[Rfam]
RNA sequence: GAUUUCCUGAGGUGUUCGUCAGCGGGUUACGUCCCUGAGCCGAUACUUACAUACUCUAGAAUUGGUUCUCUAUAGUUGGUGAGCAUGCUUGCCCUGACCUUCGAGGUCCUGAUGCAAGAAGCCUAAAAACAGUUACGACCGAUUCCCUUGAACCGUCGGGUUCAAGGACCGACCACCCACAACGGCAUCUCGGGGUCUUC
Numbered sequence: 001g002a003u004u005u006c007c008u009g010a011g012g013u014g015u016u017c018g019u020c021a022g023c024g025g026g027u028u029a030c031g032u033c034c035c036u037g038a039g040c041c042g043a044u045a046c047u048u049a050c051a052u053a054c055u056c057u058a059g060a061a062u063u064g065g066u067u068c069u070c071u072a073u074a075g076u077u078g079g080u081g082a083g084c085a086u087g088c089u090u091g092c093c094c095u096g097a098c099c100u101u102c103g104a105g106g107u108c109c110u111g112a113u114g115c116a117a118g119a120a121g122c123c124u125a126a127a128a129a130c131a132g133u134u135a136c137g138a139c140c141g142a143u144u145c146c147c148u149u150g151a152a153c154c155g156u157c158g159g160g161u162u163c164a165a166g167g168a169c170c171g172a173c174c175a176c177c178c179a180c181a182a183c184g185g186c187a188u189c190u191c192g193g194g195g196u197c198u199u200c
Stems, first nucleotide, its partner, number of pairs: 002198001005195011017184003031169004036164006059145003063141005072133002075130003083122002088118005
Dot-bracket structure: .(..(((((((((((.(((...........((((.((((((.................(((.(((((....((.(((.....((...(((((.....................)))))..)).....))).))...))))).))).............)))))).))))............))))))))))))))..)..